About this RNA: A member of the RNA family "Group II catalytic intron D1-D4-3" from Saccharicrinis fermentans, 173 nucleotides long. Pairs were carried over by alignment from the consensus structure. It scores 111 bits against the family's covariance model. The organism belongs to Saccharicrinis fermentans, within Bacteria.
RNA sequence: UAUAGGGUGACCUAUGCAGUGAAGGAAGCCAAACGGCAAACUCCGGUACUGACGGACAGAAACCGCAUAUGAGGCUUUAUAAACCGGAUGAGCAAACACAUCAUUGUGACGUCCAAACGCCAAGGAGGCGAGUGUUUAUAAAGUAGAUGCGGCAGGCAUUGGAGGUUAUUGGU
Numbered sequence: 001u002a003u004a005g006g007g008u009g010a011c012c013u014a015u016g017c018a019g020u021g022a023a024g025g026a027a028g029c030c031a032a033a034c035g036g037c038a039a040a041c042u043c044c045g046g047u048a049c050u051g052a053c054g055g056a057c058a059g060a061a062a063c064c065g066c067a068u069a070u071g072a073g074g075c076u077u078u079a080u081a082a083a084c085c086g087g088a089u090g091a092g093c094a095a096a097c098a099c100a101u102c103a104u105u106g107u108g109a110c111g112u113c114c115a116a117a118c119g120c121c122a123a124g125g126a127g128g129c130g131a132g133u134g135u136u137u138a139u140a141a142a143g144u145a146g147a148u149g150c151g152g153c154a155g156g157c158a159u160u161g162g163a164g165g166u167u168a169u170u171g172g173u
Stems, first nucleotide, its partner, number of pairs: 001016006028173005036166002041164006049155003063152006074144003078140007086114004092107004
Dot-bracket structure: ((((((....))))))...........(((((...((...((((((..(((...........((((((.....(((.(((((((.((((..((((........))))...))))...................))))))).)))..)))))))))...))))))))..)))))